[Rfam]
Nucleotides: 163
Stems, first nucleotide, its partner, number of pairs: 006158001008156003011149002013095001015145003020139003025135008039113005045074005054065004080104004086098003115123003
Number, partner (000 for none) and nucleotide at each position: 001000u002000a003000u004000c005000c006158u007000a008156u009155c010154c011149g012148u013095u014000a015145g016144g017143u018000g019000a020139g021138g022137c023000u024000c025135c026134u027133g028132u029131a030130c031129a032128g033000a034000g035000a036000g037000a038000c039113g040112c041111u042110a043109c044000u045074g046073c047072c048071c049070a050000a051000a052000a053000a054065u055064g056063u057062c058000g059000a060000g061000a062057g063056a064055c065054g066000c067000c068000a069000a070049u071048g072047g073046g074045u075000c076000a077000a078000c079000a080104g081103g082102a083101a084000a085000g086098a087097u088096c089000g090000g091000c092000u093000u094000a095013a096088g097087g098086u099000c100000u101083u102082u103081u104080c105000u106000a107000a108000u109043g110042u111041a112040g113039c114000u115123g116122g117121c118000a119000u120000a121117g122116c123115c124000u125000a126000u127000g128032c129031u130030g131029u132028a133027c134026a135025g136000u137022g138021c139020u140000a141000a142000a143017a144016c145015u146000c147000a148012a149011c150000g151000a152000g153000a154010g155009g156008a157000a158006a159000a160000a161000u162000u163000g